[Rfam]
The family of this 100-nucleotide RNA from Metapseudomonas resinovorans is "Pseudomon-Rho RNA".
Rfam classes the family as a cis-regulatory element.
Lineage of the source: Bacteria > Gammaproteobacteria > Pseudomonadaceae > Metapseudomonas > Metapseudomonas resinovorans.
RNA sequence: UUCGGGACCGCUGCCAUUUCUGUGCAGCCCUCCACGCCGUCGCCGAUGCACUCCAAUUCGAAUAAGCACAGCGAUCCUGUCGCCUUCUCUGCGGCGCGGC
Numbered sequence: 001u002u003c004g005g006g007a008c009c010g011c012u013g014c015c016a017u018u019u020c021u022g023u024g025c026a027g028c029c030c031u032c033c034a035c036g037c038c039g040u041c042g043c044c045g046a047u048g049c050a051c052u053c054c055a056a057u058u059c060g061a062a063u064a065a066g067c068a069c070a071g072c073g074a075u076c077c078u079g080u081c082g083c084c085u086u087c088u089c090u091g092c093g094g095c096g097c098g099g100c
Stems, first nucleotide, its partner, number of pairs: 010028005036100004041096005071083005
Dot-bracket structure: .........(((((.........))))).......((((.(((((.........................(((((...)))))........)))))))))